A member of the RNA family "mir-166 microRNA precursor family" from Microthlaspi erraticum, 159 nucleotides long. Rfam 15.1 lists 2,599 matches to the family in 229 species. Rfam describes the family as follows. This family represents the plant microRNA (miRNA) precursor mir-166. The literature on the family includes a 2001 paper in Cell by Ambros, "microRNAs: tiny regulators with great potential". The family's consensus secondary structure was predicted with PFOLD.
[Rfam]
RNA sequence: UUUGAGGGGAUUGUUGUCUGGCACGAGGCCCUUAACUUAGAUCUACAGUUGAUUAUAUAUUCUUAUUCUUAAUUUAUAUUACACAUAUUAUAUAUACAUGAUUAAUGAUCGAUUUAAUGGUACGUUAAUGGCGUCGGACCAGGCUUCAUUCCCCUCAAU
Dot-bracket structure: .(((((((((.((..((((((..(((...........................................................................................................)))..))))))..)).))))))))).